[Rfam]
RNA sequence: CUGCAUCCACUGAUAGGUCUGGAAUAGUUGGCUGUGGUUCUUUUGCUCUGCACCAGGCUGCAAAAGAAAAAUACCUGUGGUUUGUCUUAGUGGCAGCUCAGAUUGAAUUAGGAAUUAUAUUU
Numbered sequence: 001c002u003g004c005a006u007c008c009a010c011u012g013a014u015a016g017g018u019c020u021g022g023a024a025u026a027g028u029u030g031g032c033u034g035u036g037g038u039u040c041u042u043u044u045g046c047u048c049u050g051c052a053c054c055a056g057g058c059u060g061c062a063a064a065a066g067a068a069a070a071a072u073a074c075c076u077g078u079g080g081u082u083u084g085u086c087u088u089a090g091u092g093g094c095a096g097c098u099c100a101g102a103u104u105g106a107a108u109u110a111g112g113a114a115u116u117a118u119a120u121u122u
Stems, first nucleotide, its partner, number of pairs: 002062004007057002011052002014050004019045001022040004027035002072114001074112004080099001082096005
RNA: Small nucleolar RNA SNORA31
Organism: Oryctolagus cuniculus